[Rfam]
RNA sequence: UUCUUAUAAAGAAGAGGCGAGAGAACAGGCUCUAAGACCCUCUGGCAACCGCCGCAUACGGAAAGGUGCCAAAUCCUGCCCAAAUAAUUGAGUUUAUUGGGAACUAUAAAAA
Dot-bracket structure: ((.(((((....(((((...(((..[[[[)))......)))))((((.((.(((....)))...))))))....]]]](((((.............)))))...))))).))
SAM riboswitch aptamer (S box leader): a 112-nucleotide RNA sequence from Solitalea canadensis. Gene Ontology term of the family: regulation of gene expression. Rfam's curators write: The SAM riboswitch is found upstream of a number of genes which code for proteins involved in methionine or cysteine biosynthesis in Gram-positive bacteria. NCBI's taxonomy places the organism under Bacteria, Pseudomonadati, Sphingobacteriia, Sphingobacteriales, Solitalea canadensis.